[Rfam]
RNA sequence: AGUCAAGAGUUUUUGGCACCGUUUUGGUGAGCGGAUUUCUUUUGCCUAUUGAAAGGCAAGGAAGAUG
Numbered sequence: 001a002g003u004c005a006a007g008a009g010u011u012u013u014u015g016g017c018a019c020c021g022u023u024u025u026g027g028u029g030a031g032c033g034g035a036u037u038u039c040u041u042u043u044g045c046c047u048a049u050u051g052a053a054a055g056g057c058a059a060g061g062a063a064g065a066u067g
Stems, first nucleotide, its partner, number of pairs: 010063005019056002022054006029047001031045005
RNA: S-element